A member of the RNA family "MIR473 microRNA precursor family" from Prunus dulcis, 78 nucleotides long.
The source organism's lineage runs through Eukaryota, Streptophyta, Streptophytina, Euphyllophyta and Prunus.
The family has 6 seed sequences and 189 matches in Rfam 15.1.
Pairs were carried over by alignment from the consensus structure, which was predicted with WAR.
A reference for the family is Lu et al. (2005), "Novel and mechanical stress-responsive MicroRNAs in Populus trichocarpa that are absent from Arabidopsis", Plant Cell.

RNA sequence: GUUGCUCACUCUCCCUCAAGGGCUUCUAGCAAUGUCAGAAAUGAUGAACUCGAAGCCUUUGGAGAGAGUAAACAAAAA
Numbered sequence: 001g002u003u004g005c006u007c008a009c010u011c012u013c014c015c016u017c018a019a020g021g022g023c024u025u026c027u028a029g030c031a032a033u034g035u036c037a038g039a040a041a042u043g044a045u046g047a048a049c050u051c052g053a054a055g056c057c058u059u060u061g062g063a064g065a066g067a068g069u070a071a072a073c074a075a076a077a078a
Stems, first nucleotide, its partner, number of pairs: 006071001008069006015062001017061010